Record summary:
Bacterial large signal recognition particle RNA: a 267-nucleotide RNA sequence from Paenibacillus curdlanolyticus. NCBI's taxonomy places the organism under Bacteria, Bacillati, Caryophanales, Paenibacillaceae, Paenibacillus curdlanolyticus. Rfam describes the family as follows. The signal recognition particle (SRP) is a universally conserved ribonucleoprotein involved in the co-translational targeting of proteins to membranes. The family's consensus secondary structure is taken from published work.
RNA sequence: CCGUGCUAGACGGGGAGGUAGCGGUGCCCUGUAACUCGCAAUCCGCUGUAGCGAGGUUGAAUUCCUGUCUGAGGUUAUGCUGAUGCGGGGUUGGUAUUUGCAAUCAAUGUUGACAGUUGGGUCCUCCGCAAUGGGCAUCUGUGAACCCGGUCAGGUCCGGAAGGAAGCAGCCGUAAGCAGAUCUGUUCAUGUGUUGGAGGAGUGCCUGGCUCGAGUUGAAGUGCAAAGGUGCCACCCGGGUCGCAUGGAUCGGGGGCAGGUGCACGG
Numbered sequence: 001c002c003g004u005g006c007u008a009g010a011c012g013g014g015g016a017g018g019u020a021g022c023g024g025u026g027c028c029c030u031g032u033a034a035c036u037c038g039c040a041a042u043c044c045g046c047u048g049u050a051g052c053g054a055g056g057u058u059g060a061a062u063u064c065c066u067g068u069c070u071g072a073g074g075u076u077a078u079g080c081u082g083a084u085g086c087g088g089g090g091u092u093g094g095u096a097u098u099u100g101c102a103a104u105c106a107a108u109g110u111u112g113a114c115a116g117u118u119g120g121g122u123c124c125u126c127c128g129c130a131a132u133g134g135g136c137a138u139c140u141g142u143g144a145a146c147c148c149g150g151u152c153a154g155g156u157c158c159g160g161a162a163g164g165a166a167g168c169a170g171c172c173g174u175a176a177g178c179a180g181a182u183c184u185g186u187u188c189a190u191g192u193g194u195u196g197g198a199g200g201a202g203u204g205c206c207u208g209g210c211u212c213g214a215g216u217u218g219a220a221g222u223g224c225a226a227a228g229g230u231g232c233c234a235c236c237c238g239g240g241u242c243g244c245a246u247g248g249a250u251c252g253g254g255g256g257c258a259g260g261u262g263c264a265c266g267g
Stems, first nucleotide, its partner, number of pairs: 001267006009058003012030004017025001019023001035055005064260007073251004081243004086238004093233002097227005105221001106217003115211008123200006129191002132189005137182006148173004156165003